A member of the RNA family "Bacterial large subunit ribosomal RNA" from Mycobacterium lacus, 481 nucleotides of a longer RNA. The match comes from Rfam's covariance-model search (2757 bits). The base pairs follow the family's consensus structure, which is taken from published work. Lineage of the source: Bacteria > Actinomycetes > Mycobacteriales > Mycobacteriaceae > Mycobacterium. Rfam links the family to the GO terms ribosome and structural constituent of ribosome.
RNA sequence: GACAAGGCAAGUGAGAACCUUGCCCGCCGAAAGACCAAGGGUUCCUGGGCCAGGCCAGUCCGCCCAGGGUGAGUCGGGACCUAAGGCGAGGCCGACAGGCGUAGUCGAUGGACAACGGGUUGAUAUUCCCGUACCCGUGUGUGGGCGUCCCUGACGAAUCAGCGGUACUAACCACCCAAAACCGGAUCGAUCAUGCCCCUUCGGGGGCGUGGAGGUCUGGGGCUGCGUGGGAACUUCGCUGGUAGUAGUCAAGCGAAGGGGUGACGCAGGAAGGCAGCCGUACCAGUCAGUGGUAAUACUGGGGCAAGCCUGUAGGGAGAGCGAUAGGCAAAUCCGUCGCUCACAUAUCCUGAGAGGUGAUGCAUAGCCGGUUGAGGCGAAUUCGGUGAUCCUCUGCUGCCAAGAAAAGCCUCUAGCGAGCACACACACGGCCCGUACCCCAAACCGACACAGGUGGUCAGGUAGAGAAUACCGAGGCGUA
Dot-bracket structure: .....((((((.......))))))((((....((((..((...((((((...((.....)).))))))......((((.((...(((.(.(((....))).).)))...))...(((((........)))))..(((((((((.(...........................................................................................................((..((((((...((((..(((..((((..(((((..........))))).((..((((...(((.(((((((.((.....)))))))))......)))...))))...)).(.(((......))).)...))))...)))...))))........)))))).))...).)))))))))))))..)).....((......)).)))).((((.....))))..))))..